[Rfam]
Notes:
Shown here is a 72-nucleotide RNA sequence from Octodon degus, a member of the family "tRNA".

RNA sequence: GGGGUUGUAACUCAAUGGUAGAGUACUUUCCUUAUAUGUAUGAGACCCUGGGUUCAAUUCCCAGCACCCACC
Number, nucleotide and partner (000 for none) at each position: 001g071002g000003g069004g068005u000006u066007g065008u000009a000010a024011c023012u022013c021014a000015a000016u000017g000018g000019u000020a000021g013022a012023g011024u010025a000026c042027u000028u040029u000030c038031c000032u000033u000034a000035u000036a000037u000038g030039u000040a028041u000042g026043a000044g000045a000046c000047c000048c064049u063050g062051g061052g060053u000054u000055c000056a000057a000058u000059u000060c052061c051062c050063a049064g048065c007066a006067c000068c004069c003070a000071c001072c000
Transfer RNA (tRNA) molecules are approximately 80 nucleotides in length. Pairs were carried over by alignment from the consensus structure, which is taken from published work.